[Rfam]
Nucleotides: 193
Base pairs, nucleotide, nucleotide: 002191003190004189005188006187007186008185009184010183011182012180013179014178015177018175019174030159031158032157033156034155035154036153037151038150056135057134058133060131061130062129063128065126067125069124070123071122072121073120074119075118081112086108087107088106089105090104091103092102
Number, partner (000 for none) and nucleotide at each position: 001000a002191a003190a004189g005188u006187c007186c008185u009184g010183a011182u012180g013179u014178g015177u016000u017000a018175g019174u020000u021000g022000u023000a024000c025000a026000c027000c028000u029000a030159g031158u032157u033156u034155u035154g036153a037151c038150c039000g040000a041000a042000c043000a044000u045000u046000u047000u048000u049000u050000u051000g052000a053000u054000u055000u056135g057134g058133g059000a060131g061130c062129c063128c064000g065126c066000a067125u068000u069124u070123u071122u072121a073120a074119a075118u076000g077000g078000c079000g080000u081112a082000c083000a084000u085000g086108c087107c088106u089105c090104u091103u092102u093000u094000c095000a096000u097000u098000c099000g100000g101000u102092a103091a104090a105089g106088a107087g108086g109000a110000c111000u112081u113000a114000c115000a116000a117000g118075a119074u120073u121072u122071a123070a124069a125067a126065g127000a128063g129062g130061g131060c132000a133058c134057c135056c136000a137000c138000c139000u140000g141000c142000u143000g144000a145000g146000a147000g148000c149000g150038g151037g152000u153036u154035c155034a156033a157032a158031a159030c160000a161000a162000a163000g164000g165000a166000a167000a168000g169000c170000u171000g172000c173000a174019a175018c176000g177015g178014c179013a180012c181000u182011a183010u184009u185008g186007g187006g188005a189004c190003u191002u192000u193000a
The family of this 193-nucleotide RNA from Bacillus subtilis is "6S / SsrS RNA". Rfam classes the family as a non-coding RNA gene. Rfam's curators write: E. coli 6S RNA was the first non coding RNA to be sequenced, but its function was unknown until recently.